[Rfam]
RNA sequence: UGUCUCCUCCAACUCCUCCAAGAAUUGGAUUCAGCCCACCCUUGCCGGUGGGUUUUUUUUG
Numbered sequence: 001u002g003u004c005u006c007c008u009c010c011a012a013c014u015c016c017u018c019c020a021a022g023a024a025u026u027g028g029a030u031u032c033a034g035c036c037c038a039c040c041c042u043u044g045c046c047g048g049u050g051g052g053u054u055u056u057u058u059u060u061g
Stems, first nucleotide, its partner, number of pairs: 008029005013022001033054008
RNA: Betaproteobacteria toxic small RNA